[Rfam]
RNA sequence: AUCUAACUGAGACACUACUCAAAAGCAUCUCCUCUAUUCGGCUGAAUAGGACCUUAAUUAGUCCUAGAACGGCCUGAAAUAGAGGGGUUUUAGUCGGUAGAUCCGAGGGCUUCUUCCUCGGGAAUCCGACACUACCCAGUCGUACGGACGGCUGGGUGUCUUUUGAAGAUUUCCUCUCUUC
Numbered sequence: 001a002u003c004u005a006a007c008u009g010a011g012a013c014a015c016u017a018c019u020c021a022a023a024a025g026c027a028u029c030u031c032c033u034c035u036a037u038u039c040g041g042c043u044g045a046a047u048a049g050g051a052c053c054u055u056a057a058u059u060a061g062u063c064c065u066a067g068a069a070c071g072g073c074c075u076g077a078a079a080u081a082g083a084g085g086g087g088u089u090u091u092a093g094u095c096g097g098u099a100g101a102u103c104c105g106a107g108g109g110c111u112u113c114u115u116c117c118u119c120g121g122g123a124a125u126c127c128g129a130c131a132c133u134a135c136c137c138a139g140u141c142g143u144a145c146g147g148a149c150g151g152c153u154g155g156g157u158g159u160c161u162u163u164u165g166a167a168g169a170u171u172u173c174c175u176c177u178c179u180u181c
Stems, first nucleotide, its partner, number of pairs: 040063005082181004086174002093130005102122008132158001134157005
RNA: R2 RNA element